[Rfam]
RNA: mir-2 microRNA precursor family
RNA sequence: GUACACAUCAAAGUGGCUGUUGUGUGUUGUGUUAAUCAUAUCACAGCCAGCUUUGAUGAGCGCAA
Numbered sequence: 001g002u003a004c005a006c007a008u009c010a011a012a013g014u015g016g017c018u019g020u021u022g023u024g025u026g027u028u029g030u031g032u033u034a035a036u037c038a039u040a041u042c043a044c045a046g047c048c049a050g051c052u053u054u055g056a057u058g059a060g061c062g063c064a065a
Stems, first nucleotide, its partner, number of pairs: 006058008014049007022041001025040003